RNA sequence: GCGGAAGUGGCUCAGUGGUAGAGCGUUGCCUUGCCAAGGCAAAUGUCGCGAGUUCGAAUCUCGUCUUCCGCU
Numbered sequence: 001g002c003g004g005a006a007g008u009g010g011c012u013c014a015g016u017g018g019u020a021g022a023g024c025g026u027u028g029c030c031u032u033g034c035c036a037a038g039g040c041a042a043a044u045g046u047c048g049c050g051a052g053u054u055c056g057a058a059u060c061u062c063g064u065c066u067u068c069c070g071c072u
Base pairs, nucleotide, nucleotide: 001071002070003069004068005067006066007065010024011023012022013021026042027041028040029039030038048064049063050062051061052060